[Rfam]
RNA sequence: UGUCUCCUCCAACUCUUCUUGAAUUGGAUUUAGCCCGCAACCGCAAGGUCUGCGGGCUUUUUUAU
Number, nucleotide and partner (000 for none) at each position: 001u000002g000003u000004c000005u000006c000007c000008u028009c027010c026011a025012a024013c021014u000015c000016u000017u000018c000019u000020u000021g013022a000023a000024u012025u011026g010027g009028a008029u000030u000031u000032a058033g057034c056035c055036c054037g053038c052039a051040a000041c000042c000043g000044c000045a000046a000047g000048g000049u000050c000051u039052g038053c037054g036055g035056g034057c033058u032059u000060u000061u000062u000063u000064a000065u000